RNA sequence: CUUUUCAAGGAGCGCUGCAGCGGGCCAUUCGUGCCCGUCAGGCUUGAAAACGCGGAUUUCCUCCAACGGCGCUCACCUGUU
Numbered sequence: 001c002u003u004u005u006c007a008a009g010g011a012g013c014g015c016u017g018c019a020g021c022g023g024g025c026c027a028u029u030c031g032u033g034c035c036c037g038u039c040a041g042g043c044u045u046g047a048a049a050a051c052g053c054g055g056a057u058u059u060c061c062u063c064c065a066a067c068g069g070c071g072c073u074c075a076c077c078u079g080u081u
Stems, first nucleotide, its partner, number of pairs: 002050007021037005
RNA: SAH (S-adenosyl-L-homocysteine) riboswitch aptamer